RNA sequence: UAGCAGCCAAUUAAGCCGACUGUGUUCUUUUCCCCAUGGGAAAAGUGCGCAAUGGCUGCAAACAGCGGCCUCCUUGGUAGUGUACCAGCCUGUUGCCUGUAUGGGUUGCCCUAAGGGACCUUGGAGACAUCU
Numbered sequence: 001u002a003g004c005a006g007c008c009a010a011u012u013a014a015g016c017c018g019a020c021u022g023u024g025u026u027c028u029u030u031u032c033c034c035c036a037u038g039g040g041a042a043a044a045g046u047g048c049g050c051a052a053u054g055g056c057u058g059c060a061a062a063c064a065g066c067g068g069c070c071u072c073c074u075u076g077g078u079a080g081u082g083u084a085c086c087a088g089c090c091u092g093u094u095g096c097c098u099g100u101a102u103g104g105g106u107u108g109c110c111c112u113a114a115g116g117g118a119c120c121u122u123g124g125a126g127a128c129a130u131c132u
Stems, first nucleotide, its partner, number of pairs: 003050002019046003025042004076120003086108006